About this RNA:
SAM (S-adenosyl methionine) riboswitch aptamer: a 120-nucleotide sequence from Citricoccus muralis. A reference for the family is Weinberg et al. (2008), "The aptamer core of SAM-IV riboswitches mimics the ligand-binding site of SAM-I riboswitches", RNA. The match comes from Rfam's covariance-model search (80 bits).
RNA sequence: AAUCACGAGUUCCCGCUGUUACAGCCCUGGCUUGCGGGACGGCAACCCUCUUCACGCAGUAGUGGGGUGCUCCAGGUGAGGAUUCGGCCUACCGGAUGCCCCGGCGGGCAAGUACCGCGU
Numbered sequence: 001a002a003u004c005a006c007g008a009g010u011u012c013c014c015g016c017u018g019u020u021a022c023a024g025c026c027c028u029g030g031c032u033u034g035c036g037g038g039a040c041g042g043c044a045a046c047c048c049u050c051u052u053c054a055c056g057c058a059g060u061a062g063u064g065g066g067g068u069g070c071u072c073c074a075g076g077u078g079a080g081g082a083u084u085c086g087g088c089c090u091a092c093c094g095g096a097u098g099c100c101c102c103g104g105c106g107g108g109c110a111a112g113u114a115c116c117g118c119g120u
Base pairs, nucleotide, nucleotide: 001084002083003082004081009040011039012038013037014036015035016034023032024031041071042070043069046067047066048065050062051061087109088108089107090106092104093103094102095101